[Rfam]
Small nucleolar RNA SNORD42: a 66-nucleotide RNA from Spizella passerina. The organism belongs to Spizella, within Eukaryota. About the family: snoRNA U42 is found in intron 3 of the ribosomal protein L23a (RPL23a) gene in humans and is also present in mice. By type it is a C/D-box small nucleolar RNA. The family's consensus secondary structure was predicted with PFOLD.
RNA sequence: GUGCAAGUGAUGUAAACUUCAAUUUCACUGAGUAACGUGAUGUUUCCAAAGGAACCACUGAUGCAC
Numbered sequence: 001g002u003g004c005a006a007g008u009g010a011u012g013u014a015a016a017c018u019u020c021a022a023u024u025u026c027a028c029u030g031a032g033u034a035a036c037g038u039g040a041u042g043u044u045u046c047c048a049a050a051g052g053a054a055c056c057a058c059u060g061a062u063g064c065a066c
Stems, first nucleotide, its partner, number of pairs: 001066005